[Rfam]
A member of the RNA family "Cyano-1 RNA" from Trichormus variabilis, 77 nucleotides long. The family has 265 seed sequences and 283 matches in Rfam 15.1. The match comes from Rfam's covariance-model search (52 bits). NCBI's taxonomy places the organism under Bacteria, Cyanobacteriota, Nostocales, Nostocaceae, Trichormus variabilis. Rfam classes the family as a small RNA.
RNA sequence: AUUUGUGUGAGGAGCAAUGUUGAAUAUAAAAAGCGCUUGGGGUGGAAACACGGUAACACUCCCAGGCGCUUUUUAUU
Numbered sequence: 001a002u003u004u005g006u007g008u009g010a011g012g013a014g015c016a017a018u019g020u021u022g023a024a025u026a027u028a029a030a031a032a033g034c035g036c037u038u039g040g041g042g043u044g045g046a047a048a049c050a051c052g053g054u055a056a057c058a059c060u061c062c063c064a065g066g067c068g069c070u071u072u073u074u075a076u077u
Base pairs, nucleotide, nucleotide: 029073030072031071032070033069034068035067039063040062041061042059043058044057
Pairs were carried over by alignment from the consensus structure, which is taken from published work.